Source information: A member of the RNA family "c-di-GMP-I riboswitch aptamer" from Thermolongibacillus altinsuensis, 86 nucleotides long. GEMM was predicted in a large-scale screen for bacterial structured RNA regulatory elements.

[Rfam]
RNA sequence: GAAAGAGAAAGUUACAGCCAAGGAAACUUGGUGUCACAAAGCUAUAGGGUCUAACGGCUUUUUGCCUAUGACAGCCAGCUGCCAUU
Numbered sequence: 001g002a003a004a005g006a007g008a009a010a011g012u013u014a015c016a017g018c019c020a021a022g023g024a025a026a027c028u029u030g031g032u033g034u035c036a037c038a039a040a041g042c043u044a045u046a047g048g049g050u051c052u053a054a055c056g057g058c059u060u061u062u063u064g065c066c067u068a069u070g071a072c073a074g075c076c077a078g079c080u081g082c083c084a085u086u
Base pairs, nucleotide, nucleotide: 013036017032018031019030020029021028022027040080041079042078043077047076048075049072050071051070056066057065058064
It scores 61 bits against the family's covariance model.